[Rfam]
RNA sequence: ACUCCCUUAGUAUAAUUAAUAUAACUGACUUCCAAUUAGUAGAUUCUGAAUAAACCCAGAAGAGAGUA
Number, nucleotide and partner (000 for none) at each position: 001a067002c066003u065004c064005c000006c062007u061008u000009a000010g022011u021012a020013u019014a000015a000016u000017u000018a000019a013020u012021a011022u010023a000024a040025c039026u038027g037028a036029c000030u000031u000032c000033c000034a000035a000036u028037u027038a026039g025040u024041a000042g000043a000044u000045u060046c059047u058048g057049a000050a000051u000052a000053a000054a000055c000056c000057c048058a047059g046060a045061a007062g006063a000064g004065a003066g002067u001068a000

Rfam assigns this 68-nucleotide RNA sequence to the family "tRNA".